[Rfam]
RNA sequence: CCAAAGGCUCUUUUAAGAGCCACCACGUUGCCACUGGGGAGAGCUG
Numbered sequence: 001c002c003a004a005a006g007g008c009u010c011u012u013u014u015a016a017g018a019g020c021c022a023c024c025a026c027g028u029u030g031c032c033a034c035u036g037g038g039g040a041g042a043g044c045u046g
Stems, first nucleotide, its partner, number of pairs: 006021006
Dot-bracket structure: .....((((((....)))))).........................

This 46-nucleotide RNA sequence belongs to the Rfam family "Histone 3' UTR stem-loop". Rfam's curators write: The mRNAs of metazoan histone genes lack a poly-A tail. 3' end processing occurs at a site between a highly conserved stem-loop (modelled by this family) and a purine rich region around 20 nts downstream (the histone downstream element, or HDE). Rfam classes the family as a cis-regulatory element. Gene Ontology term of the family: mRNA 3'-end processing by stem-loop binding and cleavage.